[Rfam]
RNA sequence: AAAAUCCUGCAUGACAAAGUUUAACCAACAGUUAUUAGCGAGUUUUGAGUUGUUUGGGGUGACUCAAAGGGCUAAGCGUAGACAGCAAACUGGUGGGCCGUAAGCCGAAUGAGGUUGAAGUUGAUAGCUCCGAAAUACCUAGUUGGAUAAGGUCAAUAUGUUGGUCUGCAUAGAAGACAGUACUAAACAUUCGUUAUGGUAAGAAUGAUUUAGCUUACCCGGAGUCGUAGGACA
Numbered sequence: 001a002a003a004a005u006c007c008u009g010c011a012u013g014a015c016a017a018a019g020u021u022u023a024a025c026c027a028a029c030a031g032u033u034a035u036u037a038g039c040g041a042g043u044u045u046u047g048a049g050u051u052g053u054u055u056g057g058g059g060u061g062a063c064u065c066a067a068a069g070g071g072c073u074a075a076g077c078g079u080a081g082a083c084a085g086c087a088a089a090c091u092g093g094u095g096g097g098c099c100g101u102a103a104g105c106c107g108a109a110u111g112a113g114g115u116u117g118a119a120g121u122u123g124a125u126a127g128c129u130c131c132g133a134a135a136u137a138c139c140u141a142g143u144u145g146g147a148u149a150a151g152g153u154c155a156a157u158a159u160g161u162u163g164g165u166c167u168g169c170a171u172a173g174a175a176g177a178c179a180g181u182a183c184u185a186a187a188c189a190u191u192c193g194u195u196a197u198g199g200u201a202a203g204a205a206u207g208a209u210u211u212a213g214c215u216u217a218c219c220c221g222g223a224g225u226c227g228u229a230g231g232a233c234a
Stems, first nucleotide, its partner, number of pairs: 012034002019029003022202001024200002036088001038086002042083004046078002048073004053068006124228001127225006146219001148217004152178003157172004183213005188207005